[Rfam]
RNA sequence: GUGUGUUAAUGAUGGUCUGUCUUUAAACUCGACAGAGGAAGCAGACCUGAUAUGUAACACUC
Number, nucleotide and partner (000 for none) at each position: 001g062002u000003g060004u059005g058006u000007u000008a000009a000010u000011g000012a000013u000014g047015g046016u045017c044018u043019g042020u041021c000022u039023u038024u000025a000026a000027a000028c037029u036030c035031g000032a000033c000034a000035g030036a029037g028038g023039a022040a000041g020042c019043a018044g017045a016046c015047c014048u000049g000050a000051u000052a000053u000054g000055u000056a000057a000058c005059a004060c003061u000062c001
About this RNA: Rfam assigns this 62-nucleotide sequence from Mastacembelus armatus to the family "Selenocysteine insertion sequence 1". Rfam classes the family as a cis-regulatory element. Rfam describes the family as follows. The incorporation of selenocysteine into a protein sequence is directed by an in-frame UGA codon (usually a stop codon) within the coding region of the mRNA. Selenoprotein mRNAs contain a conserved secondary structure in the 3' UTR that is required for the distinction of UGA stop from UGA selenocysteine. The selenocysteine insertion sequence (SECIS) is around 60 nt in length and adopts a hairpin structure which is sufficiently well-defined and conserved to act as a computational screen for selenoprotein genes.